[Rfam]
RNA: glmS glucosamine-6-phosphate activated ribozyme aptamer
Organism: Cetobacterium sp. 2A
RNA sequence: GAAAUAUAAAAAGCGCCAGAACUUAGAAAAGUUGACGAGGAAUGGAGAGAAUCGAAGAUUCGGCGGAUACUCCAUAGGGGGUUACACCCUGAUAAAUCUUACAAAUCUAUUGGGUGACCAAUAGGACAAAGCAGAUUUACGUAACAAU
Numbered sequence: 001g002a003a004a005u006a007u008a009a010a011a012a013g014c015g016c017c018a019g020a021a022c023u024u025a026g027a028a029a030a031g032u033u034g035a036c037g038a039g040g041a042a043u044g045g046a047g048a049g050a051a052u053c054g055a056a057g058a059u060u061c062g063g064c065g066g067a068u069a070c071u072c073c074a075u076a077g078g079g080g081g082u083u084a085c086a087c088c089c090u091g092a093u094a095a096a097u098c099u100u101a102c103a104a105a106u107c108u109a110u111u112g113g114g115u116g117a118c119c120a121a122u123a124g125g126a127c128a129a130a131g132c133a134g135a136u137u138u139a140c141g142u143a144a145c146a147a148u
Base pairs, nucleotide, nucleotide: 020033021032022031023030024029043074044073045072046071047070052063053062054061055060075092077090078089079088080087093139094138095137096136097135098134099133107124108123109122110121111120112119113118